[Rfam]
RNA sequence: GAUAGGGCUGUGUCGCUAGCGUGAUUGGACACUGACGCAGAGUCAACUAGCCUUGGUCGCGCGGUUCCUCGCGCGUCGGAACCGCGACGGCUCGAGCCAAGAGGGGGGAGGCUCGAGCCGUCUCCU
Numbered sequence: 001g002a003u004a005g006g007g008c009u010g011u012g013u014c015g016c017u018a019g020c021g022u023g024a025u026u027g028g029a030c031a032c033u034g035a036c037g038c039a040g041a042g043u044c045a046a047c048u049a050g051c052c053u054u055g056g057u058c059g060c061g062c063g064g065u066u067c068c069u070c071g072c073g074c075g076u077c078g079g080a081a082c083c084g085c086g087a088c089g090g091c092u093c094g095a096g097c098c099a100a101g102a103g104g105g106g107g108g109a110g111g112c113u114c115g116a117g118c119c120g121u122c123u124c125c126u
Stems, first nucleotide, its partner, number of pairs: 001014004015051004021032003033045004058075007077084002086122013
Dot-bracket structure: ((((......))))((((..(((......)))((((.....))))..))))......(((((((....))))))).((....)).(((((((((((((...........)))))))))))))....
RNA: Streptomyces RNA 3920